A member of the RNA family "Metazoan signal recognition particle RNA" from Baryphthengus martii, 283 nucleotides long. The match comes from Rfam's covariance-model search (151 bits). Rfam's curators write: The signal recognition particle (SRP) is a universally conserved ribonucleoprotein. It is involved in the co-translational targeting of proteins to membranes. Rfam links the family to the GO terms signal recognition particle, endoplasmic reticulum targeting and SRP-dependent cotranslational protein targeting to membrane, signal sequence recognition. The family's RNA type in Rfam is non-coding RNA gene.
[Rfam]
RNA sequence: GCCGGGCACGGCGGCUGGUGCCUGUAAUCCCAGUGUUGGGGAGGCUGAGCCCAACGGAUCGCUCGAGCCCGGGAGUUCUGGGCUGCACUGCGCUAUGCCGAGCGGGUGUCCGCGCUAAGGCCGGCAUCAAUAUGGUGAGCCCCGGGGAGCCGGGGCGCACCAGGUUGACUAAGGAGGGGUGAACCGGCCCAGGUCGGAGACGGAGUCAAAUCUCCCGUGCCGAUCGGUAGCGGGAUCGUGCCUGUGAACGGUCCCUGGGUGGGGGAGCAGGAUCCGGACUCUU
Numbered sequence: 001g002c003c004g005g006g007c008a009c010g011g012c013g014g015c016u017g018g019u020g021c022c023u024g025u026a027a028u029c030c031c032a033g034u035g036u037u038g039g040g041g042a043g044g045c046u047g048a049g050c051c052c053a054a055c056g057g058a059u060c061g062c063u064c065g066a067g068c069c070c071g072g073g074a075g076u077u078c079u080g081g082g083c084u085g086c087a088c089u090g091c092g093c094u095a096u097g098c099c100g101a102g103c104g105g106g107u108g109u110c111c112g113c114g115c116u117a118a119g120g121c122c123g124g125c126a127u128c129a130a131u132a133u134g135g136u137g138a139g140c141c142c143c144g145g146g147g148a149g150c151c152g153g154g155g156c157g158c159a160c161c162a163g164g165u166u167g168a169c170u171a172a173g174g175a176g177g178g179g180u181g182a183a184c185c186g187g188c189c190c191a192g193g194u195c196g197g198a199g200a201c202g203g204a205g206u207c208a209a210a211u212c213u214c215c216c217g218u219g220c221c222g223a224u225c226g227g228u229a230g231c232g233g234g235a236u237c238g239u240g241c242c243u244g245u246g247a248a249c250g251g252u253c254c255c256u257g258g259g260u261g262g263g264g265g266a267g268c269a270g271g272a273u274c275c276g277g278a279c280u281c282u283u
Stems, first nucleotide, its partner, number of pairs: 001045003004023006011016001028042003047281003051277002059270001061268004067260007090253001092252003096248001098246001102245008110234002113232005119225002122222006128167004133162005139156007169173001176215004186207003194203003